[Rfam]
RNA sequence: UGUCAAUGAUGAUAACUCUAAGGCUUGUUUCUCAAAACAUUCGCAGUGGCCGUCUAAAGCUUUCGCCUUCGCCAGGCUUGAGAGCUAAUGCUGCCUUAACCUUCCUUGGAUGUCUGAGAUC
Numbered sequence: 001u002g003u004c005a006a007u008g009a010u011g012a013u014a015a016c017u018c019u020a021a022g023g024c025u026u027g028u029u030u031c032u033c034a035a036a037a038c039a040u041u042c043g044c045a046g047u048g049g050c051c052g053u054c055u056a057a058a059g060c061u062u063u064c065g066c067c068u069u070c071g072c073c074a075g076g077c078u079u080g081a082g083a084g085c086u087a088a089u090g091c092u093g094c095c096u097u098a099a100c101c102u103u104c105c106u107u108g109g110a111u112g113u114c115u116g117a118g119a120u121c
Stems, first nucleotide, its partner, number of pairs: 002120003059085006
The family of this 121-nucleotide RNA sequence from Cannabis sativa is "Small nucleolar RNA SNORD14". On this family, see Samarsky et al., Nucleic Acids Res 1996: "An essential domain in Saccharomyces cerevisiae U14 snoRNA is absent in vertebrates, but conserved in other yeasts". The match comes from Rfam's covariance-model search (79 bits). By type it is a C/D-box small nucleolar RNA. Taxonomically the source falls in Cannabis (Eukaryota, Viridiplantae, Mesangiospermae, eudicotyledons). From the family's description: U14 small nucleolar RNA (U14 snoRNA) is required for early cleavages of eukaryotic precursor rRNAs. In yeasts, this molecule possess a stem-loop region (known as the Y-domain) which is essential for function. A similar structure, but with a different consensus sequence, is found in plants, but is absent in vertebrates. Rfam links the family to the GO terms RNA processing and nucleolus.